[Rfam]
RNA sequence: AAUGGUAGCUAGGGGUGCCGCAAGGCUGAGAGAGAUCCUUUGGUCUUAACCCUUCGAACCUGAUGUGGUUAGUACCACCGUAGGGAAGCGCCAGGAAACAACU
Dot-bracket structure: .......(((((((..(((....)))......(((((....)))))...)))).....((((..((((......))))..))))..)))..............
RNA: TPP riboswitch aptamer (THI element)